[Rfam]
RNA: Lysine riboswitch aptamer
RNA sequence: GCAAGGGGGAGAGGAUGCGAUAUUAAAGAGUAAUCUAUGUGAGGAUGACAACGAUGAACAUAGUUGAAAGGUGAUAUCGCCGAAAUGAUACUUUACGUCAAAUGAAGUAUUGUUGGGGUUGUCUUAAAUAAGGACAACACUGUCAUUACAAAGAAAAGAAAACUAUGUAAUGGUGAGCUACAGAAGCG
Numbered sequence: 001g002c003a004a005g006g007g008g009g010a011g012a013g014g015a016u017g018c019g020a021u022a023u024u025a026a027a028g029a030g031u032a033a034u035c036u037a038u039g040u041g042a043g044g045a046u047g048a049c050a051a052c053g054a055u056g057a058a059c060a061u062a063g064u065u066g067a068a069a070g071g072u073g074a075u076a077u078c079g080c081c082g083a084a085a086u087g088a089u090a091c092u093u094u095a096c097g098u099c100a101a102a103u104g105a106a107g108u109a110u111u112g113u114u115g116g117g118g119u120u121g122u123c124u125u126a127a128a129u130a131a132g133g134a135c136a137a138c139a140c141u142g143u144c145a146u147u148a149c150a151a152a153g154a155a156a157a158g159a160a161a162a163c164u165a166u167g168u169a170a171u172g173g174u175g176a177g178c179u180a181c182a183g184a185a186g187c188g
Stems, first nucleotide, its partner, number of pairs: 008181001010179002017080009033065001035063006084114012115141002118138008143173007